[Rfam]
Rfam assigns this 64-nucleotide RNA from Salmo salar to the family "mir-23 microRNA precursor family". Pairs were carried over by alignment from the consensus structure, which was predicted with PFOLD.

RNA sequence: AGGGUUCCUGGCACAGUGAUUUGGUGCACAAAUAUAAACGAAAAUCACAUUGCCAGGGAUUUCC
Numbered sequence: 001a002g003g004g005u006u007c008c009u010g011g012c013a014c015a016g017u018g019a020u021u022u023g024g025u026g027c028a029c030a031a032a033u034a035u036a037a038a039c040g041a042a043a044a045u046c047a048c049a050u051u052g053c054c055a056g057g058g059a060u061u062u063c064c
Stems, first nucleotide, its partner, number of pairs: 002064002004060010016048007